[Rfam]
RNA sequence: UUCUUAUUUAGAGAGGUGGAGGGACUGGCCCUAUGAAACCCGACAACCGACAUUUUUUUGAUGUAAUGGUGUCAAUUCCUGCAGAACAUAGUUCUGAAUAAUAAGAA
Numbered sequence: 001u002u003c004u005u006a007u008u009u010a011g012a013g014a015g016g017u018g019g020a021g022g023g024a025c026u027g028g029c030c031c032u033a034u035g036a037a038a039c040c041c042g043a044c045a046a047c048c049g050a051c052a053u054u055u056u057u058u059u060g061a062u063g064u065a066a067u068g069g070u071g072u073c074a075a076u077u078c079c080u081g082c083a084g085a086a087c088a089u090a091g092u093u094c095u096g097a098a099u100a101a102u103a104a105g106a107a
Base pairs, nucleotide, nucleotide: 001107002106003105004104005103006102007101008100013041015040016039017038021031022030023029025081027079028078042073043072044071045070047069048068050064051063052062082096083095084094085093086092087091

A member of the RNA family "SAM riboswitch aptamer (S box leader)" from Clostridium estertheticum, 107 nucleotides long. It scores 93 bits against the family's covariance model. Pairs were carried over by alignment from the consensus structure, which is taken from published work. The organism belongs to Clostridium, within Bacteria.